[Rfam]
RNA: mir-139 microRNA precursor family
RNA sequence: CUGUGUUCUACAGUGCACGUGUCUCCAGUGGGUGUUGGCGACUGGGGACGCGGCCCUGUUGGAAUAAC
Numbered sequence: 001c002u003g004u005g006u007u008c009u010a011c012a013g014u015g016c017a018c019g020u021g022u023c024u025c026c027a028g029u030g031g032g033u034g035u036u037g038g039c040g041a042c043u044g045g046g047g048a049c050g051c052g053g054c055c056c057u058g059u060u061g062g063a064a065u066a067a068c
Base pairs, nucleotide, nucleotide: 006064007063008062009061010059011058012057013056015054016053018052019051020050021049022048023047024046025045026044027043028042029041